[Rfam]
RNA sequence: UGAGACGGUCGGGCGGCCGCGCGGCCCCUUCUGGGGCCUCGAGGAACGUCCGGGCUCCACAGGGCAGGGUGGUGGCCAACAGCCACCCGGGGUGACCCGCGGGACAGUGCCACAGAGAACAGACCGCCACGGGCUUCGGCCCGGGGCAAGGGUGAAACGGUGGGGCAAGAGCCCACCAGCGACACGGGUGACCGUGUCGGCUCGGCAAACCCCACCCGGAGCAAGACCAAGCAGCAGAUGCCACGGACGGCCCGUCCAAUGUCUGCGGGUAGGUUGCUGGAGGCCUGCGGCAACGCAGGUCCUAGAUGGAUGGUCGCCACCGCACGCUGGAAUCGGCGCGCGGGACAGAACCCGGCGUACAGACCGUCUCAUCCG
Numbered sequence: 001u002g003a004g005a006c007g008g009u010c011g012g013g014c015g016g017c018c019g020c021g022c023g024g025c026c027c028c029u030u031c032u033g034g035g036g037c038c039u040c041g042a043g044g045a046a047c048g049u050c051c052g053g054g055c056u057c058c059a060c061a062g063g064g065c066a067g068g069g070u071g072g073u074g075g076c077c078a079a080c081a082g083c084c085a086c087c088c089g090g091g092g093u094g095a096c097c098c099g100c101g102g103g104a105c106a107g108u109g110c111c112a113c114a115g116a117g118a119a120c121a122g123a124c125c126g127c128c129a130c131g132g133g134c135u136u137c138g139g140c141c142c143g144g145g146g147c148a149a150g151g152g153u154g155a156a157a158c159g160g161u162g163g164g165g166c167a168a169g170a171g172c173c174c175a176c177c178a179g180c181g182a183c184a185c186g187g188g189u190g191a192c193c194g195u196g197u198c199g200g201c202u203c204g205g206c207a208a209a210c211c212c213c214a215c216c217c218g219g220a221g222c223a224a225g226a227c228c229a230a231g232c233a234g235c236a237g238a239u240g241c242c243a244c245g246g247a248c249g250g251c252c253c254g255u256c257c258a259a260u261g262u263c264u265g266c267g268g269g270u271a272g273g274u275u276g277c278u279g280g281a282g283g284c285c286u287g288c289g290g291c292a293a294c295g296c297a298g299g300u301c302c303u304a305g306a307u308g309g310a311u312g313g314u315c316g317c318c319a320c321c322g323c324a325c326g327c328u329g330g331a332a333u334c335g336g337c338g339c340g341c342g343g344g345a346c347a348g349a350a351c352c353c354g355g356c357g358u359a360c361a362g363a364c365c366g367u368c369u370c371a372u373c374c375g
Base pairs, nucleotide, nucleotide: 001371002370003369004368005367006366007365008364009363010362011360012318013317014316015315016314017313018312020041021040023038024037025036026035027034028033046358047357048356050355051354052353053352054351055221056220057219058218062253063252064251065250067217068216069215070214071213072086073085074084075083076082087101088099089098090097091096102212103211107210108209109206110205111204124151125150126147127146128145130143131142132141133140134139159177160176161175162174163173164172179201180199181198182197183196184195185194186193187192225275226274227273228272234266235265236264237263238262239261245257246256247255248254282301283300284299285298286297287296288295289294
RNA: Bacterial RNase P class A